Rfam assigns this 50-nucleotide RNA sequence from Palleronia abyssalis to the family "SAM/SAH riboswitch aptamer". Gene Ontology terms of the family: S-adenosylmethionine metabolic process and regulation of gene expression.

RNA sequence: AUAGGCGCACAACGGCUUCCUGGCGUGCGCUGUUAUCAGAUAAUGGAGCA
Numbered sequence: 001a002u003a004g005g006c007g008c009a010c011a012a013c014g015g016c017u018u019c020c021u022g023g024c025g026u027g028c029g030c031u032g033u034u035a036u037c038a039g040a041u042a043a044u045g046g047a048g049c050a
Stems, first nucleotide, its partner, number of pairs: 004031007013022002015049003019046002
The match comes from Rfam's covariance-model search (51 bits).